[Rfam]
RNA sequence: UCCGGGGGAAGCUCACCGCCGAGGCCACGCACGGGGUGUGCGUCACCCACAGCCCUGCCUCGGGGAAGGUCUGAGGGAAGGGCCGCCCGCGGCUCCAGCAGAGCCCCGCCCGCGAGUGGGGCGGGUGAGCCACCAGCAAGGGGGGGCGCCGCGUUAAUACGACUUAAUGGGCCGGUCCAUGGGCAGGAGAAGCCGAGCAGGUUCCGGCGCGGGCUCCCCGCCCACCGGGACCCCGGCGGAUGCUCGUGGCCCCGCGGUGCUUUGAGACAGACUCACGGCCGGCGAUUGAGUCCAAUGGGUGAGGUGGGGCACGGCCCUACAACCCAAUUCAGACUACUCUCCCCCGGA
Number, nucleotide and partner (000 for none) at each position: 001u348002c347003c346004g345005g000006g000007g342008g341009a340010a000011g000012c303013u302014c301015a300016c299017c298018g000019c000020c062021g061022a060023g059024g058025c000026c000027a000028c000029g000030c000031a000032c000033g000034g048035g047036g046037u045038g044039u000040g000041c000042g000043u000044c038045a037046c036047c035048c034049a000050c000051a000052g000053c000054c000055c000056u000057g000058c024059c023060u022061c021062g020063g000064g000065g000066a000067a000068g000069g000070u000071c332072u331073g330074a329075g328076g000077g000078a000079a000080g000081g280082g279083c278084c277085g000086c000087c000088c000089g000090c000091g105092g104093c103094u102095c101096c000097a000098g000099c000100a000101g095102a094103g093104c092105c091106c124107c123108g122109c121110c120111c119112g000113c000114g000115a000116g000117u000118g000119g111120g110121g109122c108123g107124g106125g276126u275127g274128a273129g272130c000131c270132a000133c000134c000135a000136g000137c000138a000139a000140g000141g000142g000143g000144g000145g261146g260147c259148g258149c257150c256151g255152c254153g253154u000155u000156a000157a000158u000159a000160c000161g000162a000163c000164u000165u000166a000167a000168u000169g000170g000171g000172c000173c000174g000175g000176u000177c000178c000179a000180u000181g000182g000183g000184c000185a000186g000187g000188a000189g000190a000191a000192g000193c000194c000195g000196a000197g000198c000199a000200g000201g000202u000203u000204c000205c000206g000207g000208c000209g000210c000211g000212g000213g000214c000215u000216c000217c000218c000219c000220g000221c000222c000223c000224a000225c000226c000227g000228g000229g000230a000231c000232c000233c000234c000235g000236g000237c000238g000239g000240a000241u000242g000243c000244u000245c000246g000247u000248g000249g000250c000251c000252c000253c153254g152255c151256g150257g149258u148259g147260c146261u145262u000263u000264g000265a000266g000267a000268c000269a000270g131271a000272c129273u128274c127275a126276c125277g084278g083279c082280c081281g000282g000283c000284g000285a000286u000287u000288g000289a000290g000291u000292c000293c000294a000295a000296u000297g000298g017299g016300u015301g014302a013303g012304g320305u319306g318307g317308g316309g315310c314311a000312c000313g000314g310315c309316c308317c307318u306319a305320c304321a000322a000323c000324c000325c000326a000327a000328u075329u074330c073331a072332g071333a000334c000335u000336a000337c000338u000339c000340u009341c008342c007343c000344c000345c004346g003347g002348a001
RNA: Nuclear RNase P